[Rfam]
RNA sequence: UGGCGACCAACGUGGGGCCUGGAUACUGGGGGACAACGUGAGGGACACGACGAAAGAAGAAGGGGUGCGCACCCACUCAAAUAGUUCAGAGACGUCGCAGUAGCCUGCUGUGACUGAGCCGACAGGUAUGUUGGUCAUUCAAUCAUGGGGCAAGAAUUAAGUCAGCAUCAGAAAUAUGUGAUGCAGUUAAGAGAAGCUUUACAGGCAAGAGGAGUAAAGGUUACAACUGAGGAUUUAUUUCAUUUCUUUGAUUUUGUAAAGGACAUUUGUCCCU
Numbered sequence: 001u002g003g004c005g006a007c008c009a010a011c012g013u014g015g016g017g018c019c020u021g022g023a024u025a026c027u028g029g030g031g032g033a034c035a036a037c038g039u040g041a042g043g044g045a046c047a048c049g050a051c052g053a054a055a056g057a058a059g060a061a062g063g064g065g066u067g068c069g070c071a072c073c074c075a076c077u078c079a080a081a082u083a084g085u086u087c088a089g090a091g092a093c094g095u096c097g098c099a100g101u102a103g104c105c106u107g108c109u110g111u112g113a114c115u116g117a118g119c120c121g122a123c124a125g126g127u128a129u130g131u132u133g134g135u136c137a138u139u140c141a142a143u144c145a146u147g148g149g150g151c152a153a154g155a156a157u158u159a160a161g162u163c164a165g166c167a168u169c170a171g172a173a174a175u176a177u178g179u180g181a182u183g184c185a186g187u188u189a190a191g192a193g194a195a196g197c198u199u200u201a202c203a204g205g206c207a208a209g210a211g212g213a214g215u216a217a218a219g220g221u222u223a224c225a226a227c228u229g230a231g232g233a234u235u236u237a238u239u240u241c242a243u244u245u246c247u248u249u250g251a252u253u254u255u256g257u258a259a260a261g262g263a264c265a266u267u268u269g270u271c272c273c274u
Stems, first nucleotide, its partner, number of pairs: 007030002012026003037049003085124001086122002093116001096112005131153003135150001138149004158201003161197002209249006218236005259274001261272004